A member of the RNA family "Iron response element II" from Erinaceus europaeus, 31 nucleotides long. A reference for the family is Koeller et al. (1989), "A cytosolic protein binds to structural elements within the iron regulatory region of the transferrin receptor mRNA", Proc Natl Acad Sci U S A. Its family is annotated with response to iron ion in the Gene Ontology. NCBI's taxonomy places the organism under Eukaryota, Gnathostomata, Theria, Laurasiatheria, Erinaceus.
RNA sequence: ACAUUAUCGGGAGCAGCGCCUUCCAUAGUGU
Numbered sequence: 001a002c003a004u005u006a007u008c009g010g011g012a013g014c015a016g017c018g019c020c021u022u023c024c025a026u027a028g029u030g031u
Stems, first nucleotide, its partner, number of pairs: 001031007009024005014018001
By type it is a cis-regulatory element. Rfam describes the family as follows. IRE, TFRC, SLC40A1, SDHB, SLC11A2, CDC42BPA, ACO2, ALAS2_H.SAPIENS, CDC14A, EPAS1, ALAS2, qoxD, Hao1, NDUFS1, transferrin, Aconitate.